Overview
A member of the RNA family "mir-135 microRNA precursor family" from Panurus biarmicus, 87 nucleotides long. It scores 73 bits against the family's covariance model.
RNA sequence: AGCCUCCCGUCUUGUAUGGCUUUUUAUUCCUAUGUGAUUAUACAUCCCAAUUCAUAUAGGGAUUGAAGCCGUGCAAUACGCCGGGGU
Dot-bracket structure: ..(((..(((.((((((((((((..((((((((((((..............)))))))))))).)))))))))))).)))..)))..
A reference for the family is Lagos-Quintana et al. (2002), "Identification of tissue-specific microRNAs from mouse", Curr Biol.